[Rfam]
A. fumigatus sRNA Afu_254: a 158-nucleotide sequence from Aspergillus ruber.
Rfam classes the family as a small RNA.
Lineage of the source: Eukaryota > Eurotiomycetes > Eurotiomycetidae > Aspergillus subgen. Aspergillus > Aspergillus ruber.
RNA sequence: CUCUCAAUCUACUACAAGCCUUUCAAAUACUUUUUAAAGACUUUUCAGUCAAACCACUACCAACUUUCACAAUGUCUCCCUGCGCAUGCAACUGCUGCUCCGGCAACUGCAACUCUUGCUCUUGCAGCUCGUGCAAGGUAUGUCUUCUUCUCUUCAAA
Numbered sequence: 001c002u003c004u005c006a007a008u009c010u011a012c013u014a015c016a017a018g019c020c021u022u023u024c025a026a027a028u029a030c031u032u033u034u035u036a037a038a039g040a041c042u043u044u045u046c047a048g049u050c051a052a053a054c055c056a057c058u059a060c061c062a063a064c065u066u067u068c069a070c071a072a073u074g075u076c077u078c079c080c081u082g083c084g085c086a087u088g089c090a091a092c093u094g095c096u097g098c099u100c101c102g103g104c105a106a107c108u109g110c111a112a113c114u115c116u117u118g119c120u121c122u123u124g125c126a127g128c129u130c131g132u133g134c135a136a137g138g139u140a141u142g143u144c145u146u147c148u149u150c151u152c153u154u155c156a157a158a
Stems, first nucleotide, its partner, number of pairs: 081105003088098003109134003118125002